[Rfam]
RNA sequence: UUUGCCUUCCUGCAUUACCUUCAUAUAUCCUCGAUAAUAUGGAUCGAAAGUUUCUACCGAAUCACCGUAAAUGAUUUGACUAUGAAGGCAGAAUUAAUUCAA
Numbered sequence: 001u002u003u004g005c006c007u008u009c010c011u012g013c014a015u016u017a018c019c020u021u022c023a024u025a026u027a028u029c030c031u032c033g034a035u036a037a038u039a040u041g042g043a044u045c046g047a048a049a050g051u052u053u054c055u056a057c058c059g060a061a062u063c064a065c066c067g068u069a070a071a072u073g074a075u076u077u078g079a080c081u082a083u084g085a086a087g088g089c090a091g092a093a094u095u096a097a098u099u100c101a102a
Stems, first nucleotide, its partner, number of pairs: 018088008031047005058078007

Shown here is a 102-nucleotide RNA from Bacillus sp. V5-8f, a member of the family "Purine riboswitch aptamer".
Pairs were carried over by alignment from the consensus structure, which is taken from published work.